[Rfam]
c-di-GMP-I riboswitch aptamer: an 86-nucleotide RNA sequence from Anaerotalea alkaliphila. A search with the family's covariance model found it, with a score of 74 bits. The source organism's lineage runs through Bacteria, Bacillati, Bacillota, Eubacteriales and Anaerotalea. GEMM was predicted in a large-scale screen for bacterial structured RNA regulatory elements.
RNA sequence: CAAUUUCAUGGGCAAACCCAGCGAAAGUUGGGGACGCAAAGCUAUGAGUCUAAGGCUGGCAAAGCUAUGAUCGUCAAGCUGCAACG
Numbered sequence: 001c002a003a004u005u006u007c008a009u010g011g012g013c014a015a016a017c018c019c020a021g022c023g024a025a026a027g028u029u030g031g032g033g034a035c036g037c038a039a040a041g042c043u044a045u046g047a048g049u050c051u052a053a054g055g056c057u058g059g060c061a062a063a064g065c066u067a068u069g070a071u072c073g074u075c076a077a078g079c080u081g082c083a084a085c086g
Base pairs, nucleotide, nucleotide: 012037013036017032018031019030020029021028022027040080041079042078043077045076046075047074048071049070050069055065056064057063